This 145-nucleotide sequence from Gossypium australe belongs to the Rfam family "MIR7502 microRNA precursor family". Its family is annotated with RISC complex and miRNA-mediated post-transcriptional gene silencing in the Gene Ontology. The match comes from Rfam's covariance-model search (76 bits). Pairs were carried over by alignment from the consensus structure, which was predicted with RNAalifold. NCBI's taxonomy places the organism under Eukaryota, Streptophyta, Mesangiospermae, eudicotyledons, Gossypium.
RNA sequence: UGUUAAAAAUUUCAUCUAUUUUUAUUGUUAAAAAUUAGUCUUUAUACGUUAACAUGCAAUACACAUAGUAUACCACGUGUCACUGUCUAGUUAUUUCGUCAACUAUGUCAGUUUUUAACUCUAUAAAACGAUGAAAUUUUUAACA
Numbered sequence: 001u002g003u004u005a006a007a008a009a010u011u012u013c014a015u016c017u018a019u020u021u022u023u024a025u026u027g028u029u030a031a032a033a034a035u036u037a038g039u040c041u042u043u044a045u046a047c048g049u050u051a052a053c054a055u056g057c058a059a060u061a062c063a064c065a066u067a068g069u070a071u072a073c074c075a076c077g078u079g080u081c082a083c084u085g086u087c088u089a090g091u092u093a094u095u096u097c098g099u100c101a102a103c104u105a106u107g108u109c110a111g112u113u114u115u116u117a118a119c120u121c122u123a124u125a126a127a128a129c130g131a132u133g134a135a136a137u138u139u140u141u142a143a144c145a
Stems, first nucleotide, its partner, number of pairs: 002144015019127003023123002028118006